The family of this 61-nucleotide sequence from Theropithecus gelada is "U7 small nuclear RNA". It scores 51 bits against the family's covariance model. Rfam 15.1 lists 10,439 matches to the family in 569 species. NCBI's taxonomy places the organism under Eukaryota, Deuterostomia, Amniota, Cercopithecidae, Theropithecus.

[Rfam]
RNA sequence: AAGUGUUAGAGCUCUUUUAGAAUUUGUCUAGCAGACUUUUCAGGUUUUGCCAGAAAGCAAU
Numbered sequence: 001a002a003g004u005g006u007u008a009g010a011g012c013u014c015u016u017u018u019a020g021a022a023u024u025u026g027u028c029u030a031g032c033a034g035a036c037u038u039u040u041c042a043g044g045u046u047u048u049g050c051c052a053g054a055a056a057g058c059a060a061u
Stems, first nucleotide, its partner, number of pairs: 034058001036057003040054002043051003